[Rfam]
RNA: TPP riboswitch aptamer (THI element)
Organism: Nocardioides albidus
RNA sequence: GCGGUCAGACAGGGGAGCACCACCGGGUGCUGAGAGUGCGGACGUCCGCAGACCCUCCGAACCUGAUCCGGUUAGCACCGGCGAAGGGAGUCAACCGAUGCGCAUG
Numbered sequence: 001g002c003g004g005u006c007a008g009a010c011a012g013g014g015g016a017g018c019a020c021c022a023c024c025g026g027g028u029g030c031u032g033a034g035a036g037u038g039c040g041g042a043c044g045u046c047c048g049c050a051g052a053c054c055c056u057c058c059g060a061a062c063c064u065g066a067u068c069c070g071g072u073u074a075g076c077a078c079c080g081g082c083g084a085a086g087g088g089a090g091u092c093a094a095c096c097g098a099u100g101c102g103c104a105u106g
Base pairs, nucleotide, nucleotide: 008092009091010090011056012055013054014053017030018029019028020027021026037050038049039048040047041046062087063086064085068081069080070079071078